[Rfam]
RNA sequence: UGCUCUGUAACCUUCGGGGACUACAAUGGUUAGGGGCGUCUACUCGGAUCAGCAAAGGUGCUAGCUACGUUGACGCGGUGCUCUGCUUGGCUGUGUGUCGGGAUUCCGGCGCCCUCUGUAGAGGGGAUGUUGGGUUCCGUUAAAGUAGGGGAAUCGGGUCAGGCCGGAAACGGAGCAGCCCACCUCGCGCACGUCGGUCGUUGCAGAAUAACACCGCGGAGUAUGUCUACACUGGCGC
Numbered sequence: 001u002g003c004u005c006u007g008u009a010a011c012c013u014u015c016g017g018g019g020a021c022u023a024c025a026a027u028g029g030u031u032a033g034g035g036g037c038g039u040c041u042a043c044u045c046g047g048a049u050c051a052g053c054a055a056a057g058g059u060g061c062u063a064g065c066u067a068c069g070u071u072g073a074c075g076c077g078g079u080g081c082u083c084u085g086c087u088u089g090g091c092u093g094u095g096u097g098u099c100g101g102g103a104u105u106c107c108g109g110c111g112c113c114c115u116c117u118g119u120a121g122a123g124g125g126g127a128u129g130u131u132g133g134g135u136u137c138c139g140u141u142a143a144a145g146u147a148g149g150g151g152a153a154u155c156g157g158g159u160c161a162g163g164c165c166g167g168a169a170a171c172g173g174a175g176c177a178g179c180c181c182a183c184c185u186c187g188c189g190c191a192c193g194u195c196g197g198u199c200g201u202u203g204c205a206g207a208a209u210a211a212c213a214c215c216g217c218g219g220a221g222u223a224u225g226u227c228u229a230c231a232c233u234g235g236c237g238c
Base pairs, nucleotide, nucleotide: 011018012017058238059237060236061235062234063233064232074218075217076216077215078214079213080212082207083206084205085204086203089199090198091197093194094193095192096191097190098189099139100138101137102136103135104134106133107132108131109130110129111128113126114125115124116123117122140144145188146187148185149184150183156181157180158179159178164173165172166171
Dot-bracket structure: ..........((....)).......................................(((((((.........(((((((.(((((..(((.((((((((((((.((((((.(((((....))))).))))))))))))(...)((.(((.....((((....(((....)))....)))).))).))))))))..)))...)))))....))))))).............)))))))